[Rfam]
RNA sequence: ACCUGCAUCGAAAGUGACCGCGGCCUCGCCGUGGCCCGGUCAUCGAUAGUGCAGGGAGAGCAACGGCGGCGGCUCCCCCGUGUCUGCGGGGCCGCGUCCCCGCGGACCCUGUUGCUGCCGGACA
Numbered sequence: 001a002c003c004u005g006c007a008u009c010g011a012a013a014g015u016g017a018c019c020g021c022g023g024c025c026u027c028g029c030c031g032u033g034g035c036c037c038g039g040u041c042a043u044c045g046a047u048a049g050u051g052c053a054g055g056g057a058g059a060g061c062a063a064c065g066g067c068g069g070c071g072g073c074u075c076c077c078c079c080g081u082g083u084c085u086g087c088g089g090g091g092c093c094g095c096g097u098c099c100c101c102g103c104g105g106a107c108c109c110u111g112u113u114g115c116u117g118c119c120g121g122a123c124a
Stems, first nucleotide, its partner, number of pairs: 002055007014043007022036004067120007082107010
RNA: Small nucleolar RNA SNORA71
Organism: Strigops habroptila